Shown here is a 103-nucleotide RNA from Propionimicrobium lymphophilum, a member of the family "azaaromatic riboswitch aptamer (yjdF RNA)". A search with the family's covariance model found it, with a score of 55 bits.
[Rfam]
RNA sequence: GCCAUCAGAGAUGAAAACACAGUCCCCGUCGGGUAGUCGUGGACGUGCGGGAGUCCACAUCAGCAACCUGCCUCCUUGGUUGUCCCUUCUCUGCAUGGUCAUC
Numbered sequence: 001g002c003c004a005u006c007a008g009a010g011a012u013g014a015a016a017a018c019a020c021a022g023u024c025c026c027c028g029u030c031g032g033g034u035a036g037u038c039g040u041g042g043a044c045g046u047g048c049g050g051g052a053g054u055c056c057a058c059a060u061c062a063g064c065a066a067c068c069u070g071c072c073u074c075c076u077u078g079g080u081u082g083u084c085c086c087u088u089c090u091c092u093g094c095a096u097g098g099u100c101a102u103c
Stems, first nucleotide, its partner, number of pairs: 006093006022044002025042002027039002045060003049056002070080003